The record is a 136-nucleotide RNA from Gadus morhua, which matches "Small nucleolar RNA SNORA3/SNORA45 family" in Rfam. It is annotated as an H/ACA-box small nucleolar RNA.

Nucleotides: 136
Stems, first nucleotide, its partner, number of pairs: 002060005007054003012049002015047006023039004072128002076124003084117005090111002094108003
Number, partner (000 for none) and nucleotide at each position: 001000a002060g003059c004058g005057a006056g007054g008053c009052u010000a011000g012049a013048g014000u015047c016046a017045c018044g019043c020042c021000u022000a023039g024038a025037c026036a027000c028000c029000u030000u031000c032000c033000c034000g035000u036026u037025g038024u039023c040000c041000u042020g043019g044018u045017g046016u047015g048013c049012u050000a051000g052009a053008g054007u055000g056006c057005u058004c059003g060002c061000a062000g063000a064000u065000u066000g067000a068000a069000c070000g071000u072128c073127u074000u075000u076124g077123u078122u079000u080000a081000u082000u083000c084117a085116u086115u087114g088113g089000c090111u091110g092000c093000a094108g095107u096106c097000u098000a099000u100000a101000a102000c103000a104000g105000u106096g107095a108094c109000c110091c111090a112000g113088u114087c115086a116085a117084u118000c119000a120000c121000c122078a123077a124076c125000u126000c127073a128072g129000a130000c131000a132000c133000a134000u135000u136000c
Background
About the family: The members of this family belong to the H/ACA class of snoRNAs which are thought to guide the sites of modification of uridines to pseudouridines. This family includes mouse snoMBI-28 and human homologues ACA3 (SNORA3) and ACA3-2 (SNORA45). Both ACA3 and ACA3-2 share the same host gene. MBI-28, ACA3 and ACA3-2 are all predicted to guide the pseudouridylation of residues in 28S rRNA. Rfam 15.1 lists 2,080 matches to the family in 639 species. It scores 79 bits against the family's covariance model. Clan: SNORA3 clan. On this family, see Huttenhofer et al., EMBO J 2001: "RNomics: an experimental approach that identifies 201 candidates for novel, small, non-messenger RNAs in mouse".